Description: Rfam assigns this 56-nucleotide sequence from Streptomyces sp. NRRL F-5126 to the family "L17-Actino-Proteobacteria ribosomal protein leader". On this family, see Eckert and Weinberg, BMC Microbiol 2020: "Discovery of 20 novel ribosomal leader candidates in bacteria and archaea". Rfam's curators put it in the seed alignment.
RNA sequence: UCCGGCGGGCGACCGCUCGCCGGACCUGACACCGGUACCUGACACGGCCGGUGCAG
Numbered sequence: 001u002c003c004g005g006c007g008g009g010c011g012a013c014c015g016c017u018c019g020c021c022g023g024a025c026c027u028g029a030c031a032c033c034g035g036u037a038c039c040u041g042a043c044a045c046g047g048c049c050g051g052u053g054c055a056g
Base pairs, nucleotide, nucleotide: 001024002023003022004021005020006019007018008017009016026056027055028054030053031052032051033050034049035048036047